[Rfam]
RNA sequence: AAAAAGGGUGUUUGCCGCUUAGAUGGCACAUGCGUCGCAAGGCGCGUGGGGUAUGGCUAUCAAGACAUACCCAACACGUAAUUUUUGUAUGUGAGAAGCAGUUGGUACCUAAAAUACCGGCGCUUCU
Dot-bracket structure: .......((((((((((......)))))((((((((....))))))))(((((((..........))))))))))))..................((((.(((((((.......)))))))))))..